[Rfam]
RNA: ZMP/ZTP riboswitch aptamer (pfl RNA motif)
Organism: Actinobaculum sp. oral taxon 183
RNA sequence: UGGACGGGCCGCGACUGGUGUCGGAUGGAACAGACCAUCGGGGAGCGGCUCCACAGAGCGGACGCCGCACGCCUGGGUGUCGCUC
Numbered sequence: 001u002g003g004a005c006g007g008g009c010c011g012c013g014a015c016u017g018g019u020g021u022c023g024g025a026u027g028g029a030a031c032a033g034a035c036c037a038u039c040g041g042g043g044a045g046c047g048g049c050u051c052c053a054c055a056g057a058g059c060g061g062a063c064g065c066c067g068c069a070c071g072c073c074u075g076g077g078u079g080u081c082g083c084u085c
Stems, first nucleotide, its partner, number of pairs: 003054001006051007015042002017073005025038004062080005